[Rfam]
RNA: RNA Staph. aureus H
RNA sequence: GUACCUUCGAUAAUUAAUUAAACAUCUCUUAAUUAGUAUGAGUAUACCCCAUAAUAUACUAACGAAGGUAAAUUUUGACUCCCUUUAGUAGUGGAUCCAUGCGAGCAACGUAUGGAUCCUUUUU
Dot-bracket structure: .((((((((.............(((((.......)).))).((.......))..........))))))))...........((((....)).))(((((((((.....))))))))).......